[Rfam]
RNA sequence: ACAGUCUGAAAAUCACUUGGAGUCUCCUGUUGCCCCUGGUGUGAUACCUGUGCCAACAGCAGAGGCAGCAUUAAACUCAUUGCCCACGGUAAAGCGUGGGGAGUGAUACCCAUGUUCCUAUAAUC
Number, nucleotide and partner (000 for none) at each position: 001a000002c000003a000004g000005u000006c050007u000008g048009a000010a045011a000012a000013u000014c041015a040016c039017u000018u000019g034020g033021a000022g031023u000024c000025u000026c000027c000028u000029g000030u000031u022032g000033c020034c019035c000036c000037u000038g000039g016040u015041g014042u000043g000044a000045u010046a000047c000048c008049u000050g006051u000052g000053c000054c000055a000056a000057c000058a000059g000060c000061a000062g000063a000064g000065g118066c000067a116068g115069c114070a113071u112072u000073a000074a000075a000076c000077u106078c105079a104080u103081u102082g000083c000084c000085c098086a097087c096088g000089g000090u000091a000092a000093a000094g000095c000096g087097u086098g085099g000100g000101g000102a081103g080104u079105g078106a077107u000108a000109c000110c000111c000112a071113u070114g069115u068116u067117c000118c065119u000120a000121u000122a000123a000124u000125c000
A member of the RNA family "Small nucleolar RNA ACA64" from Bucco capensis, 125 nucleotides long. Gene Ontology terms of the family: RNA processing and nucleolus. The match comes from Rfam's covariance-model search (58 bits). For this family Rfam cites "A computational screen for mammalian pseudouridylation guide H/ACA RNAs" (Schattner et al., RNA, 2006).